ASpks TB sRNA: a 75-nucleotide sequence from Kutzneria viridogrisea. Pairs were carried over by alignment from the consensus structure, which is taken from published work. For this family Rfam cites "Identification of small RNAs in Mycobacterium tuberculosis" (Arnvig and Young, Mol Microbiol, 2009). The match comes from Rfam's covariance-model search (82 bits).
RNA sequence: CUUGACCGAACCCAGCCACAGCGGGCGGUCGUCCGGGUGGUCCUGGCCGUAGGUGGCCAGCAGGGCCUGGGCCUC
Numbered sequence: 001c002u003u004g005a006c007c008g009a010a011c012c013c014a015g016c017c018a019c020a021g022c023g024g025g026c027g028g029u030c031g032u033c034c035g036g037g038u039g040g041u042c043c044u045g046g047c048c049g050u051a052g053g054u055g056g057c058c059a060g061c062a063g064g065g066c067c068u069g070g071g072c073c074u075c
Stems, first nucleotide, its partner, number of pairs: 016024002032070002038065001043060003047056003
Dot-bracket structure: ...............((.....)).......((....(....(((.(((....))).)))....)...)).....